The family of this 169-nucleotide sequence from Streptomyces sp. SID8111 is "c-di-AMP riboswitch aptamer (ydaO/yuaA leader)".

RNA sequence: CCCGCACACUCACUGACCCGUGAACGGCAGGAGCGGGGGACCCACAGGUACGACUGCCUGUUACCGGUCUUCCGGAGAAACAGGCUUGGGGUUAAGCCGCGCCCUGCGCGGCCGGGCAUCUCCAGCCCGAACCCGACAGCUCACCUCGCAGGCGCCGGAGAGGAAUUCG
Numbered sequence: 001c002c003c004g005c006a007c008a009c010u011c012a013c014u015g016a017c018c019c020g021u022g023a024a025c026g027g028c029a030g031g032a033g034c035g036g037g038g039g040a041c042c043c044a045c046a047g048g049u050a051c052g053a054c055u056g057c058c059u060g061u062u063a064c065c066g067g068u069c070u071u072c073c074g075g076a077g078a079a080a081c082a083g084g085c086u087u088g089g090g091g092u093u094a095a096g097c098c099g100c101g102c103c104c105u106g107c108g109c110g111g112c113c114g115g116g117c118a119u120c121u122c123c124a125g126c127c128c129g130a131a132c133c134c135g136a137c138a139g140c141u142c143a144c145c146u147c148g149c150a151g152g153c154g155c156c157g158g159a160g161a162g163g164a165a166u167u168c169g
Stems, first nucleotide, its partner, number of pairs: 003154003010032002033149006043088002089134003097111004114128004
Its family is annotated with regulation of gene expression and cyclic-di-AMP binding in the Gene Ontology. The base pairs follow the family's consensus structure. A search with the family's covariance model found it, with a score of 64 bits.